[Rfam]
RNA sequence: GCAUUAUAUAGCUCUUUUACAAUUUGUCUAGCAGGUUUUCCAGUUUCUACCAGAAAACCCUA
Numbered sequence: 001g002c003a004u005u006a007u008a009u010a011g012c013u014c015u016u017u018u019a020c021a022a023u024u025u026g027u028c029u030a031g032c033a034g035g036u037u038u039u040c041c042a043g044u045u046u047c048u049a050c051c052a053g054a055a056a057a058c059c060c061u062a
Stems, first nucleotide, its partner, number of pairs: 034059007043050002